Rfam assigns this 64-nucleotide sequence from Thermotoga petrophila to the family "Fluoride riboswitch aptamer (crcB RNA motif)". Rfam's curators put it in the seed alignment.

RNA sequence: AACCCAACGGGCGAUGAGGCCCGCCCAAACUGCCCUGAAGAGGGCUGAUGGCCUCUACUGGCUU
Numbered sequence: 001a002a003c004c005c006a007a008c009g010g011g012c013g014a015u016g017a018g019g020c021c022c023g024c025c026c027a028a029a030c031u032g033c034c035c036u037g038a039a040g041a042g043g044g045c046u047g048a049u050g051g052c053c054u055c056u057a058c059u060g061g062c063u064u
Base pairs, nucleotide, nucleotide: 010025011024012023013022016055017054018053019052020051021050032045033044034043035042
Annotation: Its family is annotated with positive regulation of gene expression and response to fluoride in the Gene Ontology.